[Rfam]
RNA sequence: GUGCAGGUGAUGUAAACUAGAUCACAGCUGAGUCCCGUGAUGUGCUCAAAGGAACCACUGAUGCAC
Numbered sequence: 001g002u003g004c005a006g007g008u009g010a011u012g013u014a015a016a017c018u019a020g021a022u023c024a025c026a027g028c029u030g031a032g033u034c035c036c037g038u039g040a041u042g043u044g045c046u047c048a049a050a051g052g053a054a055c056c057a058c059u060g061a062u063g064c065a066c
Stems, first nucleotide, its partner, number of pairs: 001066005
About this RNA: A member of the RNA family "Small nucleolar RNA SNORD42" from Alligator sinensis, 66 nucleotides long. snoRNA U42 is found in intron 3 of the ribosomal protein L23a (RPL23a) gene in humans and is also present in mice. Rfam links the family to the GO terms RNA processing and nucleolus. The organism belongs to Alligator, within Eukaryota. For this family Rfam cites "Purified box C/D snoRNPs are able to reproduce site-specific 2'-O-methylation of target RNA in vitro" (Galardi et al., Mol Cell Biol, 2002). Rfam classes the family as a C/D-box small nucleolar RNA.